[Rfam]
RNA sequence: CGAAUCGGAUAAGUGUCUUCGGACACGAAACUCGUCUGCAAUCCCGGCAUCACCGCAUCGCGGUGUGGCGACUUUUUCAAAUGCUGCGCAAGGCAGCACUUCU
Number, nucleotide and partner (000 for none) at each position: 001c000002g000003a000004a000005u000006c000007g000008g000009a000010u000011a000012a000013g026014u025015g024016u023017c022018u000019u000020c000021g000022g017023a016024c015025a014026c013027g000028a000029a000030a000031c000032u071033c070034g069035u068036c067037u000038g000039c000040a000041a000042u000043c000044c000045c000046g000047g000048c000049a000050u000051c065052a064053c063054c062055g061056c060057a000058u000059c000060g056061c055062g054063g053064u052065g051066u000067g036068g035069c034070g033071a032072c000073u000074u000075u000076u000077u000078c000079a000080a000081a000082u098083g097084c096085u095086g094087c093088g000089c000090a000091a000092g000093g087094c086095a085096g084097c083098a082099c000100u000101u000102c000103u000

Description:
The family of this 103-nucleotide RNA is "DUF3577 RNA". The sequence is in the family's curated seed alignment.